[Rfam]
RNA sequence: UCUUGCUCAUGAAAACGUCAGACUAAAACCUUCGGGUUGUCUGAUGUUGGAGUCUCUACAAGA
Dot-bracket structure: (((((........((((((((((.....((...))...))))))))))..........)))))
Shown here is a 63-nucleotide RNA sequence from Branchiostoma belcheri, a member of the family "Selenocysteine insertion sequence 1".
The organism belongs to Branchiostoma, within Eukaryota.
Rfam describes the family as follows. The incorporation of selenocysteine into a protein sequence is directed by an in-frame UGA codon (usually a stop codon) within the coding region of the mRNA. Selenoprotein mRNAs contain a conserved secondary structure in the 3' UTR that is required for the distinction of UGA stop from UGA selenocysteine. The selenocysteine insertion sequence (SECIS) is around 60 nt in length and adopts a hairpin structure which is sufficiently well-defined and conserved to act as a computational screen for selenoprotein genes.
For this family Rfam cites "A novel RNA structural motif in the selenocysteine insertion element of eukaryotic selenoprotein mRNAs" (Walczak et al., RNA, 1996).
The family's consensus secondary structure is taken from published work.